[Rfam]
RNA sequence: GCAACUUCCGCUUCACCCGCGGCAAUCGCACCGUCUUCCUGUCGAUCGUCGGGGUAUCGUGGUUCUGGUUCUACGGCGCGGUCUUCCUGUCGCAGUUCCCCGCCUAUGCCAAGGACACCCUC
Numbered sequence: 001g002c003a004a005c006u007u008c009c010g011c012u013u014c015a016c017c018c019g020c021g022g023c024a025a026u027c028g029c030a031c032c033g034u035c036u037u038c039c040u041g042u043c044g045a046u047c048g049u050c051g052g053g054g055u056a057u058c059g060u061g062g063u064u065c066u067g068g069u070u071c072u073a074c075g076g077c078g079c080g081g082u083c084u085u086c087c088u089g090u091c092g093c094a095g096u097u098c099c100c101c102g103c104c105u106a107u108g109c110c111a112a113g114g115a116c117a118c119c120c121u122c
Base pairs, nucleotide, nucleotide: 010049011048018041019040021038022037025034026033051121052120053119054118055117057115058114060112062110067099068098071095072094074092075091076090077089078088080087081086
Shown here is a 122-nucleotide RNA sequence from Thauera aromatica, a member of the family "Burkholderia RNA 11". Gene Ontology term of the family: protein binding. It scores 65 bits against the family's covariance model. From the family's description: Co-purified with Hfq, expression confirmed by Northern blot.